[Rfam]
RNA sequence: GUCCUAUAUAGAUGUAUCAACGCAAGACAGUUGAGCAUCUCCCUUUAGGAUAUUGUUUUAUCCAGAAGCUUCAGUGACAAUCUUUAUUGUGUGGCUCAAAGUCGAAAUAAGGUGAGUUGAAGUGGAAUAGGUUAUCCGUAAGACCUUGGGUUGAAAAACUCUAAAAUCAACCUAGAAAUGAAAUCCUUAAAAUUUUGUAUAUUCUAGUUACGGAGGG
Numbered sequence: 001g002u003c004c005u006a007u008a009u010a011g012a013u014g015u016a017u018c019a020a021c022g023c024a025a026g027a028c029a030g031u032u033g034a035g036c037a038u039c040u041c042c043c044u045u046u047a048g049g050a051u052a053u054u055g056u057u058u059u060a061u062c063c064a065g066a067a068g069c070u071u072c073a074g075u076g077a078c079a080a081u082c083u084u085u086a087u088u089g090u091g092u093g094g095c096u097c098a099a100a101g102u103c104g105a106a107a108u109a110a111g112g113u114g115a116g117u118u119g120a121a122g123u124g125g126a127a128u129a130g131g132u133u134a135u136c137c138g139u140a141a142g143a144c145c146u147u148g149g150g151u152u153g154a155a156a157a158a159c160u161c162u163a164a165a166a167u168c169a170a171c172c173u174a175g176a177a178a179u180g181a182a183a184u185c186c187u188u189a190a191a192a193u194u195u196u197g198u199a200u201a202u203u204c205u206a207g208u209u210a211c212g213g214a215g216g217g
Base pairs, nucleotide, nucleotide: 001051002050003049004048005047006046008044010040011039012038013037014036015035017034018033019032020031021030022028068123069122070121071120072119073118074117075116082112083111084110085109086108087107088106093103094102096100129146130145131144132143133142135214136213137212138211139210140209141167148161149160150159151158152157172207173206174205175204176203177202178198179197180196181195182194183193